[Rfam]
RNA sequence: CCUAUUGAGUGUUGCAUCAAAUGAUAGUAGAAGUAAAGUCUUACUUUACUUUGAAGUCAGACACGUUGAUGUAGGAA
Numbered sequence: 001c002c003u004a005u006u007g008a009g010u011g012u013u014g015c016a017u018c019a020a021a022u023g024a025u026a027g028u029a030g031a032a033g034u035a036a037a038g039u040c041u042u043a044c045u046u047u048a049c050u051u052u053g054a055a056g057u058c059a060g061a062c063a064c065g066u067u068g069a070u071g072u073a074g075g076a077a
Base pairs, nucleotide, nucleotide: 001075002074003073004072005071009064010063011062012061013060022059023058024057030052031051032050033049034048035047036046037045038044

Source information: The record is a 77-nucleotide RNA, which matches "RAGATH-18 RNA" in Rfam. Rfam's curators put it in the seed alignment. The family's RNA type in Rfam is small RNA. Rfam's curators write: Actinobacteria, Firmicutes, Fusobacteria, Thermotogae (1 example).